The record is a 34-nucleotide RNA sequence from Fictibacillus arsenicus, which matches "L31-Firmicutes ribosomal protein leader" in Rfam.
RNA sequence: CUCUGCUUCCGCAUAGGAAACAGGGCAGAAGGAG
Numbered sequence: 001c002u003c004u005g006c007u008u009c010c011g012c013a014u015a016g017g018a019a020a021c022a023g024g025g026c027a028g029a030a031g032g033a034g
Base pairs, nucleotide, nucleotide: 001025002024003023004022005021008018009017010016
The family is grouped with related families in Rfam's "Ribosomal Protein L31 Leader clan". It scores 35 bits against the family's covariance model.